[Rfam]
The record is a 106-nucleotide RNA sequence from Planococcus rifietoensis, which matches "SAM riboswitch aptamer (S box leader)" in Rfam. The family is grouped with related families in Rfam's "SAM clan". Rfam's curators write: The SAM riboswitch is found upstream of a number of genes which code for proteins involved in methionine or cysteine biosynthesis in Gram-positive bacteria. Lineage of the source: Bacteria > Bacillota > Bacilli > Caryophanaceae > Planococcus.

RNA sequence: AACUUAUCCAGAGAGACUGAGGGACAGGCCCUAUGACGUCCAGCAACCAUCAUAUUCAUGAGAGGUGCUAAUUCCUGCAGGAUGUAUUCAUUCUGAGAGAUAAGAA
Numbered sequence: 001a002a003c004u005u006a007u008c009c010a011g012a013g014a015g016a017c018u019g020a021g022g023g024a025c026a027g028g029c030c031c032u033a034u035g036a037c038g039u040c041c042a043g044c045a046a047c048c049a050u051c052a053u054a055u056u057c058a059u060g061a062g063a064g065g066u067g068c069u070a071a072u073u074c075c076u077g078c079a080g081g082a083u084g085u086a087u088u089c090a091u092u093c094u095g096a097g098a099g100a101u102a103a104g105a106a
Stems, first nucleotide, its partner, number of pairs: 003104006013041001015040003021031003025077004042069004047065002050061003073098001078095006